[Rfam]
RNA sequence: AUGAAUGAGUAAUCGCUGGAACACAUUCGUGUUGCUGAGGAAAGUCCAUGCACGCACGGUUCUGAGAUGACCGUAGUGAUCGUAUUUCGCGAAUAAAUAAGCGGAAGUAGCUGAAAUGCUAACGGCGGAAGGAAAACCUAAGUCUUCGGAUAGGGUUGACACUUCCUGAAAAGUGCCACAGUGACGAAGUCUAACAGGAAACUGUUAGAGUGGAACGAGGUAAACCCUGCGAGUGUGCAACCCAAAUUAUGGUAGGGGCGCCGUACCGACGGAAUUGAACAGAGGUAUGGAUUGGCUGUCUUUAUACAGUCAAUAGAUAGAUGAUUACUACCCAGAGUACGAGGCUUACGCCGUUUGAGUACAAGGGCACAAAACAUGGCUUAUAAUU
Numbered sequence: 001a002u003g004a005a006u007g008a009g010u011a012a013u014c015g016c017u018g019g020a021a022c023a024c025a026u027u028c029g030u031g032u033u034g035c036u037g038a039g040g041a042a043a044g045u046c047c048a049u050g051c052a053c054g055c056a057c058g059g060u061u062c063u064g065a066g067a068u069g070a071c072c073g074u075a076g077u078g079a080u081c082g083u084a085u086u087u088c089g090c091g092a093a094u095a096a097a098u099a100a101g102c103g104g105a106a107g108u109a110g111c112u113g114a115a116a117u118g119c120u121a122a123c124g125g126c127g128g129a130a131g132g133a134a135a136a137c138c139u140a141a142g143u144c145u146u147c148g149g150a151u152a153g154g155g156u157u158g159a160c161a162c163u164u165c166c167u168g169a170a171a172a173g174u175g176c177c178a179c180a181g182u183g184a185c186g187a188a189g190u191c192u193a194a195c196a197g198g199a200a201a202c203u204g205u206u207a208g209a210g211u212g213g214a215a216c217g218a219g220g221u222a223a224a225c226c227c228u229g230c231g232a233g234u235g236u237g238c239a240a241c242c243c244a245a246a247u248u249a250u251g252g253u254a255g256g257g258g259c260g261c262c263g264u265a266c267c268g269a270c271g272g273a274a275u276u277g278a279a280c281a282g283a284g285g286u287a288u289g290g291a292u293u294g295g296c297u298g299u300c301u302u303u304a305u306a307c308a309g310u311c312a313a314u315a316g317a318u319a320g321a322u323g324a325u326u327a328c329u330a331c332c333c334a335g336a337g338u339a340c341g342a343g344g345c346u347u348a349c350g351c352c353g354u355u356u357g358a359g360u361a362c363a364a365g366g367g368c369a370c371a372a373a374a375c376a377u378g379g380c381u382u383a384u385a386a387u388u
Stems, first nucleotide, its partner, number of pairs: 004388003007384001008329007016037001018035001020033002042382003046379005051237005056074004061070002080232005085106006107123001108121004124227002127166004135157004142151003173225002175221003190209008241257003261290007291314009332367002337362004
RNA: Bacterial RNase P class B
Organism: Candidatus Kurthia intestinigallinarum